[Rfam]
RNA sequence: UGGUGCCCAAUGUGAGGGCUGGACACUGAGGAUCCAGUGAGGGAAGAUGACGUCCCAAAGGAACGCAUUCAAUAAGGAUUUUUCACUCUGGACUCGCCGCGGGAGCCUGCCUCGGCUAAAACCAGAAGUAAGUACAGAAGUCUGAUUAUGGGACAAGAAUUAAGCCGCCAUGAACUUUAUGUUAAACAAUUACAAGAAGCCUUGAAGAUGCGAGGAGUAAAGGUUAAAAUAGAGGAUCUAUUAAGAUUCUUUGAAUUCAUUAAGGAAACGUGUCCUU
Numbered sequence: 001u002g003g004u005g006c007c008c009a010a011u012g013u014g015a016g017g018g019c020u021g022g023a024c025a026c027u028g029a030g031g032a033u034c035c036a037g038u039g040a041g042g043g044a045a046g047a048u049g050a051c052g053u054c055c056c057a058a059a060g061g062a063a064c065g066c067a068u069u070c071a072a073u074a075a076g077g078a079u080u081u082u083u084c085a086c087u088c089u090g091g092a093c094u095c096g097c098c099g100c101g102g103g104a105g106c107c108u109g110c111c112u113c114g115g116c117u118a119a120a121a122c123c124a125g126a127a128g129u130a131a132g133u134a135c136a137g138a139a140g141u142c143u144g145a146u147u148a149u150g151g152g153a154c155a156a157g158a159a160u161u162a163a164g165c166c167g168c169c170a171u172g173a174a175c176u177u178u179a180u181g182u183u184a185a186a187c188a189a190u191u192a193c194a195a196g197a198a199g200c201c202u203u204g205a206a207g208a209u210g211c212g213a214g215g216a217g218u219a220a221a222g223g224u225u226a227a228a229a230u231a232g233a234g235g236a237u238c239u240a241u242u243a244a245g246a247u248u249c250u251u252u253g254a255a256u257u258c259a260u261u262a263a264g265g266a267a268a269c270g271u272g273u274c275c276u277u
Base pairs, nucleotide, nucleotide: 006031007030012026013025014024037048038047085129086128087127088125089124094120098114099113101111102110137154141152142151143150144149161204162203163202164200165199211253212252213251214250215249216248217247218246221239222238223237224236225235262277263276264275265274266273
Rfam assigns this 277-nucleotide sequence from Nannospalax galili to the family "Mason-Pfizer monkey virus packaging signal".
Rfam classes the family as a cis-regulatory element.
From the family's description: This family represents a group of sequences that are related to the Mason-Pfizer monkey virus (MPMV) packaging signal. The packaging signal is located in the 5' UTR and is required for specific RNA encapsidation.
Lineage of the source: Eukaryota > Euteleostomi > Glires > Spalacidae > Nannospalax.
Pairs were carried over by alignment from the consensus structure, which was predicted with PFOLD.